[Rfam]
RNA sequence: AGUAGAAUUGCGGGGCAAGUCUCUUUUGGCAGAACUACAACAUAAAACAUGAAAUAAUUAAUAUUAUUGUUCAUGUUCUCUCUCUGCCAAAAGAGACUUGCACCGUUAUUCUCCU
Numbered sequence: 001a002g003u004a005g006a007a008u009u010g011c012g013g014g015g016c017a018a019g020u021c022u023c024u025u026u027u028g029g030c031a032g033a034a035c036u037a038c039a040a041c042a043u044a045a046a047a048c049a050u051g052a053a054a055u056a057a058u059u060a061a062u063a064u065u066a067u068u069g070u071u072c073a074u075g076u077u078c079u080c081u082c083u084c085u086g087c088c089a090a091a092a093g094a095g096a097c098u099u100g101c102a103c104c105g106u107u108a109u110u111c112u113c114c115u
Base pairs, nucleotide, nucleotide: 005111006110007109008108011105012104013103015101016100017099018098019097021095022094023093024092027089028088029087030086031085032084033083